Background
A member of the RNA family "Spi-1 (PU.1) 5' UTR regulatory element", 168 nucleotides long. Spi-1 regulates myeloid gene expression during haemopoietic development. This family represents a regulatory element found in the 5' UTR of Spi-1 mRNA which is able to inhibit the translation Spi-1 transcripts by 8-fold. Rfam's curators put it in the seed alignment.
RNA sequence: CUCACCCAGGGCUCCUGUAGCUCAGGGGGCAGGCCUGAGCCCUGCACCCGCCCCACGACCGUCCAGCCCCUGACGGGGCACCCCAUCCUGAGGGGCUCUGCAUUGGCCCCCACCGAGGCAGGGGAUCUGACCGACUCGGAGCCCGGCUGGAUGUUACAGGCGUGCAAA
Numbered sequence: 001c002u003c004a005c006c007c008a009g010g011g012c013u014c015c016u017g018u019a020g021c022u023c024a025g026g027g028g029g030c031a032g033g034c035c036u037g038a039g040c041c042c043u044g045c046a047c048c049c050g051c052c053c054c055a056c057g058a059c060c061g062u063c064c065a066g067c068c069c070c071u072g073a074c075g076g077g078g079c080a081c082c083c084c085a086u087c088c089u090g091a092g093g094g095g096c097u098c099u100g101c102a103u104u105g106g107c108c109c110c111c112a113c114c115g116a117g118g119c120a121g122g123g124g125a126u127c128u129g130a131c132c133g134a135c136u137c138g139g140a141g142c143c144c145g146g147c148u149g150g151a152u153g154u155u156a157c158a159g160g161c162g163u164g165c166a167a168a
Stems, first nucleotide, its partner, number of pairs: 008043007017034002020030004044163002047160002050157001060153006068095004074090005097140004103130002105127002108124004141147002